[Rfam]
RNA sequence: AAUAUCAGUAGAGGUGCGUGUUUUAAGAGUACCUUGCAGGAUGCAGCAGGUGCAGGUGAAUGCAGGGAAAAGGAGAACAUGCCGAAGUUGUAAAGUGCCUGUCAUUUUAUAGCUGGGCGUAUGCUUAAGAGGCAUGCGACUGUCAUCGACGAAAGUGAUGGAGUGCUACGUAAGAG
Numbered sequence: 001a002a003u004a005u006c007a008g009u010a011g012a013g014g015u016g017c018g019u020g021u022u023u024u025a026a027g028a029g030u031a032c033c034u035u036g037c038a039g040g041a042u043g044c045a046g047c048a049g050g051u052g053c054a055g056g057u058g059a060a061u062g063c064a065g066g067g068a069a070a071a072g073g074a075g076a077a078c079a080u081g082c083c084g085a086a087g088u089u090g091u092a093a094a095g096u097g098c099c100u101g102u103c104a105u106u107u108u109a110u111a112g113c114u115g116g117g118c119g120u121a122u123g124c125u126u127a128a129g130a131g132g133c134a135u136g137c138g139a140c141u142g143u144c145a146u147c148g149a150c151g152a153a154a155g156u157g158a159u160g161g162a163g164u165g166c167u168a169c170g171u172a173a174g175a176g
Base pairs, nucleotide, nucleotide: 008169009168010167011166016082017081018080019079020078021077022076023075024074032067033066034065035064036063037062038061086114087113088112089111090110091109092108093107094106095105096104097103115141116140118138119137120136121135122134123133124132125131143161144160145159146158147157148156
A member of the RNA family "Lysine riboswitch aptamer" from Clostridium sp. CAG:411, 176 nucleotides long. Riboswitches are metabolite binding domains within certain messenger RNAs that serve as precision sensors for their corresponding targets. Allosteric rearrangement of mRNA structure is mediated by ligand binding, and this results in modulation of gene expression. This family includes riboswitches that sense lysine in a number of genes involved in lysine metabolism, including lysC. NCBI's taxonomy places the organism under Bacteria, Bacillati, Bacillota, Clostridia, Clostridium. The family's consensus secondary structure is taken from published work.